RNA sequence: GCGCCGUCUGAAGAAUCGCUGUCGCAGCUUACAUACAGGGAGUCCUCCUUCCCCUCCUCAGCUGUGGGGAAAGUCCCCGGAGAUGCAGAGCACGCCCUGCUCAUCUUGGAAAGCAGCCACCCCCAAGCACGGUGGCCUGGGCAGGGCAGGAGGGACAUCACCGCGCGGGCGUGAGCUCGCGCGCCGUUCCGUCCACUCUGCCGCCUGUCGCGUUCGUGCGCGCGUCCAACCAACACGCCGGCGUGCGGAGAUACGAGCACGCCGAUUGUGGGGCGUGUGCACGGCACGCGGGCGAUCUGUUGCUCAUAGACACAGUUAUGCGAUCGCGGGACACGCUCUCGCGUGCCCGUCAACGGAAUGGGGCUUACUCUCGGUCGGCG
Numbered sequence: 001g002c003g004c005c006g007u008c009u010g011a012a013g014a015a016u017c018g019c020u021g022u023c024g025c026a027g028c029u030u031a032c033a034u035a036c037a038g039g040g041a042g043u044c045c046u047c048c049u050u051c052c053c054c055u056c057c058u059c060a061g062c063u064g065u066g067g068g069g070a071a072a073g074u075c076c077c078c079g080g081a082g083a084u085g086c087a088g089a090g091c092a093c094g095c096c097c098u099g100c101u102c103a104u105c106u107u108g109g110a111a112a113g114c115a116g117c118c119a120c121c122c123c124c125a126a127g128c129a130c131g132g133u134g135g136c137c138u139g140g141g142c143a144g145g146g147c148a149g150g151a152g153g154g155a156c157a158u159c160a161c162c163g164c165g166c167g168g169g170c171g172u173g174a175g176c177u178c179g180c181g182c183g184c185c186g187u188u189c190c191g192u193c194c195a196c197u198c199u200g201c202c203g204c205c206u207g208u209c210g211c212g213u214u215c216g217u218g219c220g221c222g223c224g225u226c227c228a229a230c231c232a233a234c235a236c237g238c239c240g241g242c243g244u245g246c247g248g249a250g251a252u253a254c255g256a257g258c259a260c261g262c263c264g265a266u267u268g269u270g271g272g273g274c275g276u277g278u279g280c281a282c283g284g285c286a287c288g289c290g291g292g293c294g295a296u297c298u299g300u301u302g303c304u305c306a307u308a309g310a311c312a313c314a315g316u317u318a319u320g321c322g323a324u325c326g327c328g329g330g331a332c333a334c335g336c337u338c339u340c341g342c343g344u345g346c347c348c349g350u351c352a353a354c355g356g357a358a359u360g361g362g363g364c365u366u367a368c369u370c371u372c373g374g375u376c377g378g379c380g
Stems, first nucleotide, its partner, number of pairs: 002380005008374004015324005022067007038053005071366003075363004165180006232296001234294001238292002245285002248282001257280004262272002265269001326350005